[Rfam]
Overview:
Shown here is a 100-nucleotide RNA sequence from Sclerurus mexicanus, a member of the family "Small nucleolar RNA SNORD16". By type it is a C/D-box small nucleolar RNA. The family is grouped with related families in Rfam's "SNORD16 clan". Its family is annotated with nucleolus and RNA processing in the Gene Ontology. The base pairs follow the family's consensus structure, which was predicted with PFOLD. Taxonomically the source falls in Sclerurus (Eukaryota, Bilateria, Craniata, Theropoda).
RNA sequence: UGCCAUGAUGUCGUAAUUUGCGUCUUACUCUGUGCUCAGGGACAGUUGCCUGCUGUCAGUGUCCUGGCACAGGUGGCUGAAGACCCACGAACGCUGAGCA
Numbered sequence: 001u002g003c004c005a006u007g008a009u010g011u012c013g014u015a016a017u018u019u020g021c022g023u024c025u026u027a028c029u030c031u032g033u034g035c036u037c038a039g040g041g042a043c044a045g046u047u048g049c050c051u052g053c054u055g056u057c058a059g060u061g062u063c064c065u066g067g068c069a070c071a072g073g074u075g076g077c078u079g080a081a082g083a084c085c086c087a088c089g090a091a092c093g094c095u096g097a098g099c100a
Stems, first nucleotide, its partner, number of pairs: 001100003021082001023080002030072005039064002041057005